[Rfam]
RNA sequence: ACACUGAAAGGAGGUGAUCCUGAGUUGAGUUCCAUCAGGAUGCGUGAGGUGGCUGCUCGCUAGAGCCGCCCCUGCCUGCGCAGGGUGAGGCCCCAGAGGCCUCCGGCAGGCGAAAUCCACAGCAGUCACCCGGCCCGCGGGCUCACCGGUACAUCCCCGGUGCCUCGGCGCCAGGCCAGUGCACGGGCCUGCGUCGAGGAGCAGCCCGCGGGCCGUCUGCG
Numbered sequence: 001a002c003a004c005u006g007a008a009a010g011g012a013g014g015u016g017a018u019c020c021u022g023a024g025u026u027g028a029g030u031u032c033c034a035u036c037a038g039g040a041u042g043c044g045u046g047a048g049g050u051g052g053c054u055g056c057u058c059g060c061u062a063g064a065g066c067c068g069c070c071c072c073u074g075c076c077u078g079c080g081c082a083g084g085g086u087g088a089g090g091c092c093c094c095a096g097a098g099g100c101c102u103c104c105g106g107c108a109g110g111c112g113a114a115a116u117c118c119a120c121a122g123c124a125g126u127c128a129c130c131c132g133g134c135c136c137g138c139g140g141g142c143u144c145a146c147c148g149g150u151a152c153a154u155c156c157c158c159g160g161u162g163c164c165u166c167g168g169c170g171c172c173a174g175g176c177c178a179g180u181g182c183a184c185g186g187g188c189c190u191g192c193g194u195c196g197a198g199g200a201g202c203a204g205c206c207c208g209c210g211g212g213c214c215g216u217c218u219g220c221g
Base pairs, nucleotide, nucleotide: 013057014056015055016054018052058112059111060110061109063107066106067105068104071099072098073097131215132214133213134212135211136210137209138208139207140206141205142204143203150193
RNA: Actinobacteria sRNA Ms_IGR-5
Organism: Streptomyces sp. FH025